[Rfam]
RNA sequence: UCAUGUCUGUUCCUCUCACUGCUUGGAGCCUUAUGUAGUGGGAUUUUAGUCCAUCAUAUAUCUAAGCUGACUUGUUUUCACACAGGGCACCAUGGGAAUGGGUUGGCUGUAGUGCCUUCUGAUUUUUGUGGAAUCAAACAAUU
Numbered sequence: 001u002c003a004u005g006u007c008u009g010u011u012c013c014u015c016u017c018a019c020u021g022c023u024u025g026g027a028g029c030c031u032u033a034u035g036u037a038g039u040g041g042g043a044u045u046u047u048a049g050u051c052c053a054u055c056a057u058a059u060a061u062c063u064a065a066g067c068u069g070a071c072u073u074g075u076u077u078u079c080a081c082a083c084a085g086g087g088c089a090c091c092a093u094g095g096g097a098a099u100g101g102g103u104u105g106g107c108u109g110u111a112g113u114g115c116c117u118u119c120u121g122a123u124u125u126u127u128g129u130g131g132a133a134u135c136a137a138a139c140a141a142u143u
Base pairs, nucleotide, nucleotide: 001056003054004053005052008049014043015042016041017040018039020037021036022035069135070134072132073131083121084120085119086118087115088114089113090112095108096107097104